RNA sequence: UCAUUCCUUCGGGGCAGGGUGAAAUUCCCAACCGGCGGUGAUGAGGUAUAUACCUCUUAGUCCGUGACCCGUUAUUUCGCUCAUUGCAAUAACGGUGGAUUUGGUGAAAAUCCAAAGCCGACAGUAUAGUCUGGAUGGGAGAAGGAUAUG
Number, nucleotide and partner (000 for none) at each position: 001u000002c000003a000004u000005u146006c145007c144008u143009u142010c141011g000012g000013g000014g000015c000016a000017g029018g028019g027020u000021g000022a000023a000024a000025u000026u000027c019028c018029c017030a000031a130032c129033c120034g119035g065036c064037g063038g062039u000040g000041a000042u000043g000044a000045g000046g000047u000048a000049u000050a000051u000052a000053c000054c000055u000056c000057u000058u000059a000060g118061u117062c038063c037064g036065u035066g000067a000068c000069c095070c094071g093072u092073u091074a000075u000076u000077u000078c000079g000080c000081u000082c000083a000084u000085u000086g000087c000088a000089a000090u000091a073092a072093c071094g070095g069096u000097g000098g000099a000100u116101u115102u114103g113104g112105u000106g000107a000108a000109a000110a000111u000112c104113c103114a102115a101116a100117g061118c060119c034120g033121a000122c133123a132124g131125u000126a000127u000128a000129g032130u031131c124132u123133g122134g000135a000136u000137g000138g000139g000140a000141g010142a009143a008144g007145g006146a005147u000148a000149u000150g000

FMN riboswitch aptamer (RFN element): a 150-nucleotide sequence from Salipaludibacillus agaradhaerens. Its family is annotated with FMN binding in the Gene Ontology.